[Rfam]
RNA sequence: GAGCUUGUGAUGAUUCAAUUCCAAAAGGAUCUUAGCGGAUUUCUAUGGCGAUUCAGUAGUCGUUGAUCGCUUAAUGUUGUUACACACACUGAGGCCU
Numbered sequence: 001g002a003g004c005u006u007g008u009g010a011u012g013a014u015u016c017a018a019u020u021c022c023a024a025a026a027g028g029a030u031c032u033u034a035g036c037g038g039a040u041u042u043c044u045a046u047g048g049c050g051a052u053u054c055a056g057u058a059g060u061c062g063u064u065g066a067u068c069g070c071u072u073a074a075u076g077u078u079g080u081u082a083c084a085c086a087c088a089c090u091g092a093g094g095c096c097u
Base pairs, nucleotide, nucleotide: 001097003095004094005093
Background: Rfam assigns this 97-nucleotide RNA from Leersia perrieri to the family "Small nucleolar RNA R11/Z151". Pairs were carried over by alignment from the consensus structure, which was predicted with PFOLD. Rfam classes the family as a C/D-box small nucleolar RNA. Rfam 15.1 lists 802 matches to the family in 218 species. NCBI's taxonomy places the organism under Eukaryota, Tracheophyta, Magnoliopsida, Petrosaviidae, Leersia. Its family is annotated with nucleolus and RNA processing in the Gene Ontology.